Shown here is a 167-nucleotide RNA sequence from Streptantibioticus cattleyicolor, a member of the family "c-di-AMP riboswitch aptamer (ydaO/yuaA leader)".
It scores 41 bits against the family's covariance model.
[Rfam]
RNA sequence: GCCAGGUCGACACCACAGCUUGGCAGGAGCGGAGGACCCGAUCAUGACGGGGCCGUCCGGGCGCACCGGUAGCGGCCCCUUGGGGUGAAGCCGCGCGAGAGCGGCCGGGCAUCUUCGCCUGCCCGAACCCGACAGGCCAUCCUUCGCAGGCGCUAGGACGAAGGGGU
Numbered sequence: 001g002c003c004a005g006g007u008c009g010a011c012a013c014c015a016c017a018g019c020u021u022g023g024c025a026g027g028a029g030c031g032g033a034g035g036a037c038c039c040g041a042u043c044a045u046g047a048c049g050g051g052g053c054c055g056u057c058c059g060g061g062c063g064c065a066c067c068g069g070u071a072g073c074g075g076c077c078c079c080u081u082g083g084g085g086u087g088a089a090g091c092c093g094c095g096c097g098a099g100a101g102c103g104g105c106c107g108g109g110c111a112u113c114u115u116c117g118c119c120u121g122c123c124c125g126a127a128c129c130c131g132a133c134a135g136g137c138c139a140u141c142c143u144u145c146g147c148a149g150g151c152g153c154u155a156g157g158a159c160g161a162a163g164g165g166g167u
Stems, first nucleotide, its partner, number of pairs: 001151003007028002029147006039082002083130003091104004107124004